[Rfam]
RNA sequence: AGUGAGGGUAGAGGAGCGAUAUUCAUCAGUAAAGGAUCAGAAAGGGAUGAGCCUUAAUGAAGAUCUUUGAAAGGGAAUGGUCGCCGAAGGUGGAUAAAACUCAUCGUUUAUCUAUCUGGAUCUGUGUUGAAUAAGCACAGGGCUGUCAUACAACGAAAGGUUGUAUGGAGAACUAUCUCACCG
Numbered sequence: 001a002g003u004g005a006g007g008g009u010a011g012a013g014g015a016g017c018g019a020u021a022u023u024c025a026u027c028a029g030u031a032a033a034g035g036a037u038c039a040g041a042a043a044g045g046g047a048u049g050a051g052c053c054u055u056a057a058u059g060a061a062g063a064u065c066u067u068u069g070a071a072a073g074g075g076a077a078u079g080g081u082c083g084c085c086g087a088a089g090g091u092g093g094a095u096a097a098a099a100c101u102c103a104u105c106g107u108u109u110a111u112c113u114a115u116c117u118g119g120a121u122c123u124g125u126g127u128u129g130a131a132u133a134a135g136c137a138c139a140g141g142g143c144u145g146u147c148a149u150a151c152a153a154c155g156a157a158a159g160g161u162u163g164u165a166u167g168g169a170g171a172a173c174u175a176u177c178u179c180a181c182c183g
Stems, first nucleotide, its partner, number of pairs: 006178006016084005021078004032068007088117011118144002121141008146168007
The record is a 183-nucleotide sequence from Texcoconibacillus texcoconensis, which matches "Lysine riboswitch aptamer" in Rfam. Rfam describes the family as follows. Riboswitches are metabolite binding domains within certain messenger RNAs that serve as precision sensors for their corresponding targets. NCBI's taxonomy places the organism under Bacteria, Bacillati, Bacilli, Bacillaceae, Texcoconibacillus. The match comes from Rfam's covariance-model search (119 bits). Rfam links the family to the GO term lysine biosynthetic process. Pairs were carried over by alignment from the consensus structure, which is taken from published work.